mir-590 microRNA precursor family: an 86-nucleotide RNA sequence from Bos taurus.
[Rfam]
RNA sequence: AGCCAGUCAGAAACGAGCUUAUUCACAGAAGUACAGCAUAACCCAGUAGACCUGUAGUUUUAUGUGUAAGCUCGUUUCUGAUUGAA
Numbered sequence: 001a002g003c004c005a006g007u008c009a010g011a012a013a014c015g016a017g018c019u020u021a022u023u024c025a026c027a028g029a030a031g032u033a034c035a036g037c038a039u040a041a042c043c044c045a046g047u048a049g050a051c052c053u054g055u056a057g058u059u060u061u062a063u064g065u066g067u068a069a070g071c072u073c074g075u076u077u078c079u080g081a082u083u084g085a086a
Stems, first nucleotide, its partner, number of pairs: 004084008013075002016072007024064002027061004032056005
Dot-bracket structure: ...((((((((.((.(((((((.((.((((.(((((...............))))).)))).)).))))))).)).))))))))..
Pairs were carried over by alignment from the consensus structure, which was predicted with RNAalifold. The match comes from Rfam's covariance-model search (84 bits). The literature on the family includes a 2008 paper in Genome Res by Murchison et al., "Conservation of small RNA pathways in platypus".